RNA sequence: UAGCUGAACUCCCACUGCCCGUCGGCGCUGUUCAGCACGGCGUCGCCGAGGUGGUCGCCGCCGGCGAGCGCUUCGAGGACGGUCUCGUCGCCGUAUUUGCCGGUGCCGAUCCGGUCGACGCGGCCGUGUGCGAUCAGCACCACCCGGUCGUGCGGGGCGCCGGCCUGGGCGAUCAACUCGCCUGGUGCGUACUCGUGUUGAGUAAACCUUUCACCGAGUGCCGAGAGCACGUCGACGUCGGUGAACUCCCACAGCGCGGGGAGUUCGCGCAGCUCUUCGGGGAUGAUCGCGACCGUGGUGCCGUCGAUGUCGAAGUCGAUCCGCCCGUCGCCGACGGUGUACGCCAGGCGCCGGUUGACACGGUACGUACCGCCUGAGACCUGGACCCAGGGCAGCAGCCGCAGCAGCCAGCGGGACGUGAUGCCCUGCAUCUGCGGCGCGGUCUUGGUGGUCGUCGCCAGAUUCCGCGCAGCGGACGUGCUGAGGCUGGAAUUCUGGCUCUCUUCGGCGUUUCCG
Numbered sequence: 001u002a003g004c005u006g007a008a009c010u011c012c013c014a015c016u017g018c019c020c021g022u023c024g025g026c027g028c029u030g031u032u033c034a035g036c037a038c039g040g041c042g043u044c045g046c047c048g049a050g051g052u053g054g055u056c057g058c059c060g061c062c063g064g065c066g067a068g069c070g071c072u073u074c075g076a077g078g079a080c081g082g083u084c085u086c087g088u089c090g091c092c093g094u095a096u097u098u099g100c101c102g103g104u105g106c107c108g109a110u111c112c113g114g115u116c117g118a119c120g121c122g123g124c125c126g127u128g129u130g131c132g133a134u135c136a137g138c139a140c141c142a143c144c145c146g147g148u149c150g151u152g153c154g155g156g157g158c159g160c161c162g163g164c165c166u167g168g169g170c171g172a173u174c175a176a177c178u179c180g181c182c183u184g185g186u187g188c189g190u191a192c193u194c195g196u197g198u199u200g201a202g203u204a205a206a207c208c209u210u211u212c213a214c215c216g217a218g219u220g221c222c223g224a225g226a227g228c229a230c231g232u233c234g235a236c237g238u239c240g241g242u243g244a245a246c247u248c249c250c251a252c253a254g255c256g257c258g259g260g261g262a263g264u265u266c267g268c269g270c271a272g273c274u275c276u277u278c279g280g281g282g283a284u285g286a287u288c289g290c291g292a293c294c295g296u297g298g299u300g301c302c303g304u305c306g307a308u309g310u311c312g313a314a315g316u317c318g319a320u321c322c323g324c325c326c327g328u329c330g331c332c333g334a335c336g337g338u339g340u341a342c343g344c345c346a347g348g349c350g351c352c353g354g355u356u357g358a359c360a361c362g363g364u365a366c367g368u369a370c371c372g373c374c375u376g377a378g379a380c381c382u383g384g385a386c387c388c389a390g391g392g393c394a395g396c397a398g399c400c401g402c403a404g405c406a407g408c409c410a411g412c413g414g415g416a417c418g419u420g421a422u423g424c425c426c427u428g429c430a431u432c433u434g435c436g437g438c439g440c441g442g443u444c445u446u447g448g449u450g451g452u453c454g455u456c457g458c459c460a461g462a463u464u465c466c467g468c469g470c471a472g473c474g475g476a477c478g479u480g481c482u483g484a485g486g487c488u489g490g491a492a493u494u495c496u497g498g499c500u501c502u503c504u505u506c507g508g509c510g511u512u513u514c515c516g
Stems, first nucleotide, its partner, number of pairs: 006387001009384002015378002017325001021321001022319005029312001035310003038306005044300005051230002055226002058223001060221002062108004074099004079094005114219002116216002120212001126207002128203002131200003137194001147188001153184004159174001163170002231293004237287004242282001246280002253274003256268003326339004350374001352372003358368002388428007396420002400415001402413001404412001434473002437470001439468004445461005474515002477510003481507001483505003
RNA: Saccharopolyspora sRNA 350